[Rfam]
RNA sequence: UAUUAAGAGCAAACGGUGGAUGCCUUGGCAUCAGGAGGCGAUGAAAGACGUGGUAAGCUGCGAAAAGCUUCGGGGAGUUGCUAAACAAACUUUGAUCCGGAGAUAUCUGAAUGGGGAAACCUGCUGGGGUUAAUGCCUCAGCAUCUGCAACUGAAUACAUAGGUUGCAGAGGCGAACGGGGAGAACUGAAACAUCUUAGUACCCCCAGGAAAAGAAAACAAAAGUAAUUUUCCAAGUAGCGGCGAGCGAACGGGAAACAGCCCAAACCGAAUAUAUGUAAGCCCGAAAGCGUUGUAUAUUUGGUGUCGCGGGAUCUAAAGUGAUCUGGUUUCGGACAGAUCGAAGAGUUACAAAACUGAUUUAUAAUUAAAGCGUCUGGAAAGUCGCACCAUAGAAGGUGACAGUCCUGUAAAUAAAAUGAAUCAGUCUCUUAUUUAGACACCCAAGUACCGCGGGACACGAGAAACCCUGUGGGAAUUCAUGAGGACCAUCUCAUAAGGCUAAAUACUACCUGAUGACCGAUAGUGAACUAGUACCGUGAGGGAAAGGUGAAAAGUACCCCAGUGAGGGGAGUGAAAUAGUACCUGAAACCGUUUGUUU
Numbered sequence: 001u002a003u004u005a006a007g008a009g010c011a012a013a014c015g016g017u018g019g020a021u022g023c024c025u026u027g028g029c030a031u032c033a034g035g036a037g038g039c040g041a042u043g044a045a046a047g048a049c050g051u052g053g054u055a056a057g058c059u060g061c062g063a064a065a066a067g068c069u070u071c072g073g074g075g076a077g078u079u080g081c082u083a084a085a086c087a088a089a090c091u092u093u094g095a096u097c098c099g100g101a102g103a104u105a106u107c108u109g110a111a112u113g114g115g116g117a118a119a120c121c122u123g124c125u126g127g128g129g130u131u132a133a134u135g136c137c138u139c140a141g142c143a144u145c146u147g148c149a150a151c152u153g154a155a156u157a158c159a160u161a162g163g164u165u166g167c168a169g170a171g172g173c174g175a176a177c178g179g180g181g182a183g184a185a186c187u188g189a190a191a192c193a194u195c196u197u198a199g200u201a202c203c204c205c206c207a208g209g210a211a212a213a214g215a216a217a218a219c220a221a222a223a224g225u226a227a228u229u230u231u232c233c234a235a236g237u238a239g240c241g242g243c244g245a246g247c248g249a250a251c252g253g254g255a256a257a258c259a260g261c262c263c264a265a266a267c268c269g270a271a272u273a274u275a276u277g278u279a280a281g282c283c284c285g286a287a288a289g290c291g292u293u294g295u296a297u298a299u300u301u302g303g304u305g306u307c308g309c310g311g312g313a314u315c316u317a318a319a320g321u322g323a324u325c326u327g328g329u330u331u332c333g334g335a336c337a338g339a340u341c342g343a344a345g346a347g348u349u350a351c352a353a354a355a356c357u358g359a360u361u362u363a364u365a366a367u368u369a370a371a372g373c374g375u376c377u378g379g380a381a382a383g384u385c386g387c388a389c390c391a392u393a394g395a396a397g398g399u400g401a402c403a404g405u406c407c408u409g410u411a412a413a414u415a416a417a418a419u420g421a422a423u424c425a426g427u428c429u430c431u432u433a434u435u436u437a438g439a440c441a442c443c444c445a446a447g448u449a450c451c452g453c454g455g456g457a458c459a460c461g462a463g464a465a466a467c468c469c470u471g472u473g474g475g476a477a478u479u480c481a482u483g484a485g486g487a488c489c490a491u492c493u494c495a496u497a498a499g500g501c502u503a504a505a506u507a508c509u510a511c512c513u514g515a516u517g518a519c520c521g522a523u524a525g526u527g528a529a530c531u532a533g534u535a536c537c538g539u540g541a542g543g544g545a546a547a548g549g550u551g552a553a554a555a556g557u558a559c560c561c562c563a564g565u566g567a568g569g570g571g572a573g574u575g576a577a578a579u580a581g582u583a584c585c586u587g588a589a590a591c592c593g594u595u596u597g598u599u600u
Stems, first nucleotide, its partner, number of pairs: 007600010022585001023549002027520002029517007036509002038173002046108003049062003068102007077090003113122003123142007144170009177208001178206004188195002218225002228505001229256005239247002259502004267303011310444003315438005353429001355427010366414003372387003376383001390394001396408003450474007481496005536543002559571004
Shown here is a 600-nucleotide part of an RNA from Desulfonema limicola, a member of the family "Bacterial large subunit ribosomal RNA".
Its family is annotated with structural constituent of ribosome and ribosome in the Gene Ontology.
Taxonomically the source falls in Desulfonema (Bacteria, Pseudomonadati, Thermodesulfobacteriota, Desulfobacteria).
It scores 2970 bits against the family's covariance model.